[Rfam]
RNA sequence: AUAUUUAAUUUAAAAAUAACUCAUAUAUUGACGGAAAUAUGGUCCGUAAGUUUCUACAGAUUCGCCGUAAAAGAAUCUACUAUGGGAUAAGUAUGCACUUUA
Numbered sequence: 001a002u003a004u005u006u007a008a009u010u011u012a013a014a015a016a017u018a019a020c021u022c023a024u025a026u027a028u029u030g031a032c033g034g035a036a037a038u039a040u041g042g043u044c045c046g047u048a049a050g051u052u053u054c055u056a057c058a059g060a061u062u063c064g065c066c067g068u069a070a071a072a073g074a075a076u077c078u079a080c081u082a083u084g085g086g087a088u089a090a091g092u093a094u095g096c097a098c099u100u101u102a
Base pairs, nucleotide, nucleotide: 018088020086021085022084023083024082025081029049031047032046033045034044035043058078059077060076061075062074063073
This 102-nucleotide RNA sequence from Cetobacterium ceti belongs to the Rfam family "Purine riboswitch aptamer".
A search with the family's covariance model found it, with a score of 82 bits.
Its Rfam clan is "Purine riboswitches".
Taxonomically the source falls in Cetobacterium (Bacteria, Fusobacteriia, Fusobacteriales, Fusobacteriaceae).